[Rfam]
RNA sequence: CAUGGUGUGAAGGUUGUGAUUUGAGCAAUGCAGUAUAUUAUAUUUGUAUUGCACUUGUCCCGGCCUUUAUACCUUGU
Numbered sequence: 001c002a003u004g005g006u007g008u009g010a011a012g013g014u015u016g017u018g019a020u021u022u023g024a025g026c027a028a029u030g031c032a033g034u035a036u037a038u039u040a041u042a043u044u045u046g047u048a049u050u051g052c053a054c055u056u057g058u059c060c061c062g063g064c065c066u067u068u069a070u071a072c073c074u075u076g077u
Stems, first nucleotide, its partner, number of pairs: 004073003009068006016061001018059003023054001025052009

mir-92 microRNA precursor family: a 77-nucleotide RNA sequence from Mytilus coruscus. About the family: This family represents the microRNA precursor mir-92. Human miR-92 has two predicted hairpin precursor sequences: mir-92-1 on chromosome 13 and mir-92-2 on chromosome X. miR-92 has also been cloned from mouse embryonic stem cells. Rfam 15.1 lists 1,347 matches to the family in 653 species. Clan: mir-92 microRNA precursor clan. The family's consensus secondary structure was predicted with PFOLD.